[Rfam]
RNA sequence: UCUUGCAUUGCCUCACUCAACCUGGGUUUGAUGUGUUUCGUUACUAUAACAUCACAACCUCUUUGAGUGAGCUACAGCAGGU
Numbered sequence: 001u002c003u004u005g006c007a008u009u010g011c012c013u014c015a016c017u018c019a020a021c022c023u024g025g026g027u028u029u030g031a032u033g034u035g036u037u038u039c040g041u042u043a044c045u046a047u048a049a050c051a052u053c054a055c056a057a058c059c060u061c062u063u064u065g066a067g068u069g070a071g072c073u074a075c076a077g078c079a080g081g082u
Stems, first nucleotide, its partner, number of pairs: 008074001010072001012071009024059002027056001029054005
RNA: mir-67 microRNA precursor family